[Rfam]
Nucleotides: 097
Base pairs, nucleotide, nucleotide: 003095004094006092007091043055044054045053046052066082067081068080070078
Number, partner (000 for none) and nucleotide at each position: 001000u002000u003095u004094u005000g006092g007091a008000g009000a010000u011000g012000a013000u014000g015000a016000u017000u018000c019000a020000u021000a022000u023000c024000a025000g026000a027000g028000g029000u030000u031000g032000u033000u034000u035000c036000u037000g038000a039000c040000g041000a042000u043055g044054a045053g046052c047000c048000a049000a050000g051000a052046g053045c054044u055043c056000u057000u058000c059000c060000a061000g062000u063000g064000c065000u066082g067081c068080a069000a070078a071000a072000a073000a074000c075000u076000g077000a078070u079000c080068u081067g082066c083000c084000g085000a086000u087000c088000u089000g090000a091007u092006c093000a094004a095003a096000a097000g
Shown here is a 97-nucleotide sequence from Digitaria exilis, a member of the family "Small nucleolar RNA Z119". The literature on the family includes a 2003 paper in Nucleic Acids Res by Chen et al., "The high diversity of snoRNAs in plants: identification and comparative study of 120 snoRNA genes from Oryza sativa". Rfam 15.1 lists 93 matches to the family in 28 species. NCBI's taxonomy places the organism under Eukaryota, Tracheophyta, Liliopsida, commelinids, Digitaria. It scores 95 bits against the family's covariance model. By type it is a C/D-box small nucleolar RNA.